RNA sequence: CAAGGAUUUGAGGCCAUAGCAUAAGUGCUCACAGCAUGGCCAUGUUAGAUUCUGACACAUCUGCAAAUUCUGUU
Dot-bracket structure: ...........((((..[[[[.[[(((.......)))))))....(((((........)))))....]].]]]]
Numbered sequence: 001c002a003a004g005g006a007u008u009u010g011a012g013g014c015c016a017u018a019g020c021a022u023a024a025g026u027g028c029u030c031a032c033a034g035c036a037u038g039g040c041c042a043u044g045u046u047a048g049a050u051u052c053u054g055a056c057a058c059a060u061c062u063g064c065a066a067a068u069u070c071u072g073u074u
Stems, first nucleotide, its partner, number of pairs: 012041004018074004023069002025037003046063005
The record is a 74-nucleotide RNA from Alligator mississippiensis, which matches "Mammalian CPEB3 ribozyme" in Rfam. Taxonomically the source falls in Alligator (Eukaryota, Deuterostomia, Gnathostomata, Sauria). It scores 41 bits against the family's covariance model.